Rfam assigns this 226-nucleotide RNA from Pelotomaculum schinkii to the family "glmS glucosamine-6-phosphate activated ribozyme aptamer". This entry contains a glucosamine-6-phosphate activated ribozyme that is found in the mRNA for GlmS. GlmS is an enzyme that uses fructose-6-phosphate and glutamine to generate glucosamine-6-phosphate. The ribozyme catalyses self cleavage of the glmS mRNA that is thought to regulate GlmS activity. The match comes from Rfam's covariance-model search (104 bits).
RNA sequence: UAAAAUAUGCAAGCGCCUGAACCCUGCCCGAGUUUUAUUUGUAGUUUUUCGGGUGGUGGCGGGAUCGGUGAGUUUUGAGGAAAGCCGGUUCCGCUUCACUUGCCAGGGUUGACGAGGAGGGGGUUUAUCGAAGUUUUCGGCGGGUGCCCCCCGGUCUAAGCCGGACCGUUAACGGCAUGACAAAACCACCGGGUAACCGGUGGGACAAAAGUGCCUGCGGCAGCAG
Numbered sequence: 001u002a003a004a005a006u007a008u009g010c011a012a013g014c015g016c017c018u019g020a021a022c023c024c025u026g027c028c029c030g031a032g033u034u035u036u037a038u039u040u041g042u043a044g045u046u047u048u049u050c051g052g053g054u055g056g057u058g059g060c061g062g063g064a065u066c067g068g069u070g071a072g073u074u075u076u077g078a079g080g081a082a083a084g085c086c087g088g089u090u091c092c093g094c095u096u097c098a099c100u101u102g103c104c105a106g107g108g109u110u111g112a113c114g115a116g117g118a119g120g121g122g123g124u125u126u127a128u129c130g131a132a133g134u135u136u137u138c139g140g141c142g143g144g145u146g147c148c149c150c151c152c153g154g155u156c157u158a159a160g161c162c163g164g165a166c167c168g169u170u171a172a173c174g175g176c177a178u179g180a181c182a183a184a185a186c187c188a189c190c191g192g193g194u195a196a197c198c199g200g201u202g203g204g205a206c207a208a209a210a211g212u213g214c215c216u217g218c219g220g221c222a223g224c225a226g
Stems, first nucleotide, its partner, number of pairs: 020110007029102005119151005128140004152168006174215005186203007